[Rfam]
RNA sequence: ACACCCGUAUUAUUUGUCUGUUAUGGGUUUCGACCGAGCUUAGCGUUGUUCAUUUUUUUACACAAUAGGGCUGUAAAAAAUUGAACACGCCCCACUGAGCACCGCAUCCAGUGAGGCCAGGAGAGCGAUCAGAAUGCCUCACAACGCCCAAAAACUGGCCAUCGAGCCCGGUUUUGGGGCAA
Dot-bracket structure: ........................(.((((.....(.(....((((.(((...((((((((...........))))))))...)))))))..).).)))).)...............................................................((.(.......).))..
This 182-nucleotide RNA sequence from Metapseudomonas resinovorans belongs to the Rfam family "Pseudomonas sRNA P1". On this family, see Livny et al., Nucleic Acids Res 2006: "Identification of 17 Pseudomonas aeruginosa sRNAs and prediction of sRNA-encoding genes in 10 diverse pathogens using the bioinformatic tool sRNAPredict2". Rfam describes the family as follows. This small RNA (sRNA) was computationally identified in the genome of the opportunistic pathogen Pseudomonas aeruginosa and its expression verified by northern blot analysis. There appears to be two related copies of P1 sRNA in the P.aeruginosa PA01 genome and both copies appear to be located upstream of predicted glutamine synthetase genes.